RNA sequence: GGUGGAGAGCUCCAAAGGGAUCGCAUUGAUCUGAUGUUGAUGGCUUCCUCCAGGCAAAUGAAUUGAUGAUCGAUCAAUUAUAUUCGAUUCAGACAUUGGAUCAUGCCAUCCCUUCGGAAUUUUCCAU
Numbered sequence: 001g002g003u004g005g006a007g008a009g010c011u012c013c014a015a016a017g018g019g020a021u022c023g024c025a026u027u028g029a030u031c032u033g034a035u036g037u038u039g040a041u042g043g044c045u046u047c048c049u050c051c052a053g054g055c056a057a058a059u060g061a062a063u064u065g066a067u068g069a070u071c072g073a074u075c076a077a078u079u080a081u082a083u084u085c086g087a088u089u090c091a092g093a094c095a096u097u098g099g100a101u102c103a104u105g106c107c108a109u110c111c112c113u114u115c116g117g118a119a120u121u122u123u124c125c126a127u
Stems, first nucleotide, its partner, number of pairs: 002127005008121002011118003015114007023106004028102007
Rfam assigns this 127-nucleotide RNA from Hibiscus syriacus to the family "mir-393 microRNA precursor family". NCBI's taxonomy places the organism under Eukaryota, Streptophyta, Embryophyta, Malvales, Hibiscus. On this family, see Kruszka et al., J Plant Physiol 2012: "Role of microRNAs and other sRNAs of plants in their changing environments".